[Rfam]
RNA sequence: GUGUUUUUCAUGGUAUUAGAUUAUUAAGGUUUAAAGUUUGAUUGUCGUGAGACAACCAAUCUUAUUUAC
Dot-bracket structure: .......................................(.(((((....))))).)............

Rfam assigns this 69-nucleotide RNA from Prevotella micans to the family "Bacteroidetes FopS (family of paralogous sRNAs)". It scores 58 bits against the family's covariance model. The base pairs follow the family's consensus structure, which is taken from published work. The RNA-binding protein RbpB and BTncRNA_FopS sRNA are involved in the post-transcription regulation of polysaccharide utilisation loci (PUL). FopS sRNAs function as post-transcriptional repressors by binding to the vicinity of the start codon of the first mRNA of target PUL polycistrons, typically corresponding to the cognate SusC homolog, impeding translation of the respective glycan transporter.